This 73-nucleotide RNA from Haemonchus placei belongs to the Rfam family "mir-5928 microRNA precursor family".
RNA sequence: GGCACAAACUCGAAGUAGGGUAGUUUGGUAGGGUCAGAUGAUCCUUCUAAUCUACUCUACUUCAUUUUGGCCC
Dot-bracket structure: (((.((((...((((((((((((.((((.(.((((....)))).).)))).))))))))))))..))))))).
Numbered sequence: 001g002g003c004a005c006a007a008a009c010u011c012g013a014a015g016u017a018g019g020g021u022a023g024u025u026u027g028g029u030a031g032g033g034u035c036a037g038a039u040g041a042u043c044c045u046u047c048u049a050a051u052c053u054a055c056u057c058u059a060c061u062u063c064a065u066u067u068u069g070g071c072c073c
Stems, first nucleotide, its partner, number of pairs: 001072003005069004012063012025050004030045001032043004
Rfam 15.1 lists 1,672 matches to the family in 12 species.